[Rfam]
RNA sequence: UGGAGUUUCCAGUUUCUCUCAAAAACUGGUGGUGCGGAUGGGGCAACCCCGCCCAGUUUCUUGCUUCUGGAUAAAGAGCAAGUGGCGAGCCUGAAA
Numbered sequence: 001u002g003g004a005g006u007u008u009c010c011a012g013u014u015u016c017u018c019u020c021a022a023a024a025a026c027u028g029g030u031g032g033u034g035c036g037g038a039u040g041g042g043g044c045a046a047c048c049c050c051g052c053c054c055a056g057u058u059u060c061u062u063g064c065u066u067c068u069g070g071a072u073a074a075a076g077a078g079c080a081a082g083u084g085g086c087g088a089g090c091c092u093g094a095a096a
Base pairs, nucleotide, nucleotide: 009029010028011027012026013025014024015023039051040050041049042048043047053070054069055068056067060082061081062080063079064078065077
Dot-bracket structure: ........(((((((.......))))))).........(((((...))))).[[[[...((((((.]]]]......))))))..............

The family of this 96-nucleotide RNA sequence is "wcaG RNA". Pairs were carried over by alignment from the consensus structure, which is taken from published work.